This 125-nucleotide sequence from Brassica carinata belongs to the Rfam family "MIR9563 microRNA precursor family". The source organism's lineage runs through Eukaryota, Spermatophyta, Brassicaceae, Brassiceae and Brassica.
RNA sequence: AGAAUAUAAGAACCCCUUUCUUAACUUUUAACUAAAAAAACUAAGAACUGACUCUUAAAUAAGAGUUUUAAAAACCGGUUCUUAACUUUUUUAGUUAAAAGUUAAGAGCCCGGUUCUUAUAUUUU
Numbered sequence: 001a002g003a004a005u006a007u008a009a010g011a012a013c014c015c016c017u018u019u020c021u022u023a024a025c026u027u028u029u030a031a032c033u034a035a036a037a038a039a040a041c042u043a044a045g046a047a048c049u050g051a052c053u054c055u056u057a058a059a060u061a062a063g064a065g066u067u068u069u070a071a072a073a074a075c076c077g078g079u080u081c082u083u084a085a086c087u088u089u090u091u092u093a094g095u096u097a098a099a100a101g102u103u104a105a106g107a108g109c110c111c112g113g114u115u116c117u118u119a120u121a122u123u124u125u
Stems, first nucleotide, its partner, number of pairs: 001125014018108022042084006